[Rfam]
RNA: Bacterial large signal recognition particle RNA
Organism: Roseburia sp. CAG:182
RNA sequence: UCGGGCAGCCGGGGGAGUAGCGGUACCCUGUACCAGCAAUCCGCUAGAGCUGGGGUGAUAUCCCGCCGCGGGUUUUUGGGCUGUAAAGCUGCCCUUCGCAAGUGGCGUUGAAGUCUGGGUCUUACGCAAUAGGAACUUACGAACCGUGUCAGGUUGGGAACAAAGCAGCACUAAGUAAGAGCUCUUAUGUGCCGUGAGGUCGCCUGGACCGAGCUAACUACGGAGGUAACGUUUGUGGUCCGGAUUCAAAGCGGGAUGCCCGA
Numbered sequence: 001u002c003g004g005g006c007a008g009c010c011g012g013g014g015g016a017g018u019a020g021c022g023g024u025a026c027c028c029u030g031u032a033c034c035a036g037c038a039a040u041c042c043g044c045u046a047g048a049g050c051u052g053g054g055g056u057g058a059u060a061u062c063c064c065g066c067c068g069c070g071g072g073u074u075u076u077u078g079g080g081c082u083g084u085a086a087a088g089c090u091g092c093c094c095u096u097c098g099c100a101a102g103u104g105g106c107g108u109u110g111a112a113g114u115c116u117g118g119g120u121c122u123u124a125c126g127c128a129a130u131a132g133g134a135a136c137u138u139a140c141g142a143a144c145c146g147u148g149u150c151a152g153g154u155u156g157g158g159a160a161c162a163a164a165g166c167a168g169c170a171c172u173a174a175g176u177a178a179g180a181g182c183u184c185u186u187a188u189g190u191g192c193c194g195u196g197a198g199g200u201c202g203c204c205u206g207g208a209c210c211g212a213g214c215u216a217a218c219u220a221c222g223g224a225g226g227u228a229a230c231g232u233u234u235g236u237g238g239u240c241c242g243g244a245u246u247c248a249a250a251g252c253g254g255g256a257u258g259c260c261c262g263a
Stems, first nucleotide, its partner, number of pairs: 001263007008056003011029004016024001018022001033053005061256006070247005077242010090228002094225005102218002104215003113209008121198006127189002130187005136179005146171004154163003
Dot-bracket structure: ((((((((((((((.(.(...).).))))...(((((...........))))))))....((((((...(((((..((((((((((...((..(((((...(((((......((((((((((((((((.(((((.(((((.....((((....(((....)))....))))...)))))...)))))))...))))))...))))))))...))).))..))))).))....)))))))))))))))...)))))))))))))